[Rfam]
RNA sequence: UAUCGCGAUGACGACUCGGAAAAUUCAAGCUCAACAGACCGUAUUGCAGGUCUGUCUCUCAAGAGAUUGCCACUUGCAUGUCGAUAAUCCCGCUGAACUGAGCGAUU
Numbered sequence: 001u002a003u004c005g006c007g008a009u010g011a012c013g014a015c016u017c018g019g020a021a022a023a024u025u026c027a028a029g030c031u032c033a034a035c036a037g038a039c040c041g042u043a044u045u046g047c048a049g050g051u052c053u054g055u056c057u058c059u060c061a062a063g064a065g066a067u068u069g070c071c072a073c074u075u076g077c078a079u080g081u082c083g084a085u086a087a088u089c090c091c092g093c094u095g096a097a098c099u100g101a102g103c104g105a106u107u
Stems, first nucleotide, its partner, number of pairs: 002106005
RNA: Small nucleolar RNA Z107/R87
Organism: Salvia splendens